This 99-nucleotide RNA sequence from Anaerotruncus sp. AF02-27 belongs to the Rfam family "SAM riboswitch aptamer (S box leader)".
RNA sequence: GCCUUAUGAAGAGUGGUGGAGGGAACAGGCCCUAUGAAGCCCGGCAACCUGCAUUUUGUGCAAGGUGCCAAAUCCUGCGGCAUGGCCGACAGAUGAGGA
Numbered sequence: 001g002c003c004u005u006a007u008g009a010a011g012a013g014u015g016g017u018g019g020a021g022g023g024a025a026c027a028g029g030c031c032c033u034a035u036g037a038a039g040c041c042c043g044g045c046a047a048c049c050u051g052c053a054u055u056u057u058g059u060g061c062a063a064g065g066u067g068c069c070a071a072a073u074c075c076u077g078c079g080g081c082a083u084g085g086c087c088g089a090c091a092g093a094u095g096a097g098g099a
Base pairs, nucleotide, nucleotide: 002098003097004096005095006094007093013042015041016040017039021032022031023030026077027076028075029074043069044068045067046066048065049064050062051061052060053059073091078088079087080086081085
Record summary
The family's consensus secondary structure is taken from published work.